Bacterial large subunit ribosomal RNA: a 441-nucleotide part of an RNA from Helicobacter bilis. The family has 102 seed sequences and 51,934 matches in Rfam 15.1. The base pairs follow the family's consensus structure, which is taken from published work. Rfam's curators put it in the seed alignment.
RNA sequence: CUCUUCGAAAUAUAUUUAGGUAUAGCCUCAAGUGAUAGUAAUAGGGGGUAGAGCUCUGAUUGGGCUAGGGCUGCUCACCGCGGUACCAACCCCUGUCAAACUGCAAAUACCUAUUACCGUAUCUUGGGAGUCAGGCGGUGGGUGAUAAAAUCAAUCGUCAAAAGGGGAACAACCCAGACUACCAACUAAGGUCCCAAAGUUCUAUUCUAAGUGGAAAAUGAUGUGAAGUUACUCAGACAACCAGGAGGUUGGCUUAGAAGCAGCCAUCCUUUAAAGAAAGCGUAACAGCUCACUGGUCUAGUGAUUUUGCGCAGAAAAUAUAACGGGGCUAAGAUAGACACCGAAGUUGUAGAUUGUGCUGAUGCACAGUGGUAGAAGAGCGUUCGUAUCAGCGUUGAAGGCAUACCGGUAAGGAGUGCUGGAGCGAUGCGAAGUGAGCAU
Numbered sequence: 001c002u003c004u005u006c007g008a009a010a011u012a013u014a015u016u017u018a019g020g021u022a023u024a025g026c027c028u029c030a031a032g033u034g035a036u037a038g039u040a041a042u043a044g045g046g047g048g049u050a051g052a053g054c055u056c057u058g059a060u061u062g063g064g065c066u067a068g069g070g071c072u073g074c075u076c077a078c079c080g081c082g083g084u085a086c087c088a089a090c091c092c093c094u095g096u097c098a099a100a101c102u103g104c105a106a107a108u109a110c111c112u113a114u115u116a117c118c119g120u121a122u123c124u125u126g127g128g129a130g131u132c133a134g135g136c137g138g139u140g141g142g143u144g145a146u147a148a149a150a151u152c153a154a155u156c157g158u159c160a161a162a163a164g165g166g167g168a169a170c171a172a173c174c175c176a177g178a179c180u181a182c183c184a185a186c187u188a189a190g191g192u193c194c195c196a197a198a199g200u201u202c203u204a205u206u207c208u209a210a211g212u213g214g215a216a217a218a219u220g221a222u223g224u225g226a227a228g229u230u231a232c233u234c235a236g237a238c239a240a241c242c243a244g245g246a247g248g249u250u251g252g253c254u255u256a257g258a259a260g261c262a263g264c265c266a267u268c269c270u271u272u273a274a275a276g277a278a279a280g281c282g283u284a285a286c287a288g289c290u291c292a293c294u295g296g297u298c299u300a301g302u303g304a305u306u307u308u309g310c311g312c313a314g315a316a317a318a319u320a321u322a323a324c325g326g327g328g329c330u331a332a333g334a335u336a337g338a339c340a341c342c343g344a345a346g347u348u349g350u351a352g353a354u355u356g357u358g359c360u361g362a363u364g365c366a367c368a369g370u371g372g373u374a375g376a377a378g379a380g381c382g383u384u385c386g387u388a389u390c391a392g393c394g395u396u397g398a399a400g401g402c403a404u405a406c407c408g409g410u411a412a413g414g415a416g417u418g419c420u421g422g423a424g425c426g427a428u429g430c431g432a433a434g435u436g437a438g439c440a441u
Stems, first nucleotide, its partner, number of pairs: 001380006011024005026130001027128006036121001038117008051104001052102002057098003062093003068087002070084005134159006141152003164175003179352004184348003190342003199339001201338005207333001219313002223310010240297005246270003251265003271275001276291001280289002353370007381436001383433007392425002400420005406414002